[Rfam]
RNA sequence: CUUGUGGACUGUUAUAUCAAAUGAGAGUAGAUUUUCAUAGUUUAUGAAGUUAAAAUCAGGCAGGUUGAAGCAAGAA
Numbered sequence: 001c002u003u004g005u006g007g008a009c010u011g012u013u014a015u016a017u018c019a020a021a022u023g024a025g026a027g028u029a030g031a032u033u034u035u036c037a038u039a040g041u042u043u044a045u046g047a048a049g050u051u052a053a054a055a056u057c058a059g060g061c062a063g064g065u066u067g068a069a070g071c072a073a074g075a076a
Base pairs, nucleotide, nucleotide: 001074002073003072004071005070009063010062011061012060013059022058023057024056030051031050032049035047036046037045038044

The record is a 76-nucleotide RNA, which matches "RAGATH-18 RNA" in Rfam.